RNA sequence: CCCUGACAGGCGCAAAUAGCGUCUGACUUAACCCACGACAGGAGAUAGACAUG
Numbered sequence: 001c002c003c004u005g006a007c008a009g010g011c012g013c014a015a016a017u018a019g020c021g022u023c024u025g026a027c028u029u030a031a032c033c034c035a036c037g038a039c040a041g042g043a044g045a046u047a048g049a050c051a052u053g
Base pairs, nucleotide, nucleotide: 002042003041004040005039007025008024009023010022011021
The family of this 53-nucleotide RNA sequence is "Mu-gpT-DE RNA". Rfam's curators put it in the seed alignment. Pairs were carried over by alignment from the consensus structure, which is taken from published work.